[Rfam]
RNA sequence: GAGCAGUGAUGUUAACGGCACUUAUAUAGUGAACGAUGGGUCGUCACAUUCAUCUGAAAUAUCAGAUGAGAACAUGGUGCACUGAGCUC
Numbered sequence: 001g002a003g004c005a006g007u008g009a010u011g012u013u014a015a016c017g018g019c020a021c022u023u024a025u026a027u028a029g030u031g032a033a034c035g036a037u038g039g040g041u042c043g044u045c046a047c048a049u050u051c052a053u054c055u056g057a058a059a060u061a062u063c064a065g066a067u068g069a070g071a072a073c074a075u076g077g078u079g080c081a082c083u084g085a086g087c088u089c
Base pairs, nucleotide, nucleotide: 001089002088003087004086
small nucleolar RNA snoR114: an 89-nucleotide sequence from Capsicum baccatum.
The source organism's lineage runs through Eukaryota, Viridiplantae, Solanales, Solanaceae and Capsicum.
Rfam 15.1 lists 1,645 matches to the family in 183 species.
By type it is a C/D-box small nucleolar RNA.
The base pairs follow the family's consensus structure, which was predicted with RNAalifold.
The match comes from Rfam's covariance-model search (46 bits).